[Rfam]
RNA sequence: AGUCCGGGACGACCCGGCCAGACCGCUGCUAUUCGGGGACGACCCUA
Numbered sequence: 001a002g003u004c005c006g007g008g009a010c011g012a013c014c015c016g017g018c019c020a021g022a023c024c025g026c027u028g029c030u031a032u033u034c035g036g037g038g039a040c041g042a043c044c045c046u047a
Base pairs, nucleotide, nucleotide: 002019004017005016006015007014008013035046036045037044038043